[Rfam]
RNA sequence: UUCUUAUCCAGAGAGACGGAGGGAUUGGCCCUACGAUGUCUCGGCAACCAGCCUGUUUCAGGUAUGGUGCUAAUUCCAAUAGGCGAGCAGCCUUGAAGAUAAGGA
Dot-bracket structure: ((((((((....(((((...(((.[[[[)))......)))))((((.((.(((.......)))..))))))...(]]]].((((.....))))...)))))))))
Numbered sequence: 001u002u003c004u005u006a007u008c009c010a011g012a013g014a015g016a017c018g019g020a021g022g023g024a025u026u027g028g029c030c031c032u033a034c035g036a037u038g039u040c041u042c043g044g045c046a047a048c049c050a051g052c053c054u055g056u057u058u059c060a061g062g063u064a065u066g067g068u069g070c071u072a073a074u075u076c077c078a079a080u081a082g083g084c085g086a087g088c089a090g091c092c093u094u095g096a097a098g099a100u101a102a103g104g105a
Stems, first nucleotide, its partner, number of pairs: 001105008013042005021031003025079004043071004048067002051063003075097001081093004